[Rfam]
RNA: Nuclear RNase P
RNA sequence: GGCAGAGGGAAGGUCAUCGGUGGGGCCACAAGCUGAGUGCCUUGUGUCACUCUACCCCAUGUGGCCUGGGGAGGGUGAGACUAGAGCCAAAAGUGGUCCUAACAGAGGCCACCUCCAAGAGUUUCCAGGAGGUAGGUUUUCCGAGAAGGCGGCUCUCUGCUCCUGAGGGCAGACAGGGUAGGAGACGCAGCGGACCCCAGCCCCUGAGGACGGGCCUGGCAGAUGCCUCCUUAGCCUGACCUUGAACGGACUCACACAGCCACUGAAGAGAGUUCAAUGGCUGCGGUGAGGUACCUGCCCCUCCCGGGAAGGUGGGGGGGGUGGCGCUCAGAACCCAACUCAGACCACUCUCUACUACC
Numbered sequence: 001g002g003c004a005g006a007g008g009g010a011a012g013g014u015c016a017u018c019g020g021u022g023g024g025g026c027c028a029c030a031a032g033c034u035g036a037g038u039g040c041c042u043u044g045u046g047u048c049a050c051u052c053u054a055c056c057c058c059a060u061g062u063g064g065c066c067u068g069g070g071g072a073g074g075g076u077g078a079g080a081c082u083a084g085a086g087c088c089a090a091a092a093g094u095g096g097u098c099c100u101a102a103c104a105g106a107g108g109c110c111a112c113c114u115c116c117a118a119g120a121g122u123u124u125c126c127a128g129g130a131g132g133u134a135g136g137u138u139u140u141c142c143g144a145g146a147a148g149g150c151g152g153c154u155c156u157c158u159g160c161u162c163c164u165g166a167g168g169g170c171a172g173a174c175a176g177g178g179u180a181g182g183a184g185a186c187g188c189a190g191c192g193g194a195c196c197c198c199a200g201c202c203c204c205u206g207a208g209g210a211c212g213g214g215c216c217u218g219g220c221a222g223a224u225g226c227c228u229c230c231u232u233a234g235c236c237u238g239a240c241c242u243u244g245a246a247c248g249g250a251c252u253c254a255c256a257c258a259g260c261c262a263c264u265g266a267a268g269a270g271a272g273u274u275c276a277a278u279g280g281c282u283g284c285g286g287u288g289a290g291g292u293a294c295c296u297g298c299c300c301c302u303c304c305c306g307g308g309a310a311g312g313u314g315g316g317g318g319g320g321g322u323g324g325c326g327c328u329c330a331g332a333a334c335c336c337a338a339c340u341c342a343g344a345c346c347a348c349u350c351u352c353u354a355c356u357a358c359c
Base pairs, nucleotide, nucleotide: 001359002358004356008353009352010351015283016282018280021068022067023066024065035052036051037050038049039048040046077341078340079339086260087259095110096109097108098107099105113131114130115129116128132255133254135252136251137250138249152240154238287330288329289328290327
Dot-bracket structure: ((.(...(((....[[.[..((((..........((((((.....).)))))............))))........(((......((.......(((((.....).))))..((((...........))))((.((((.............(.(...................................................................................).)........)))).))...))...................].]]...((((....................................))))........))).........)))..).))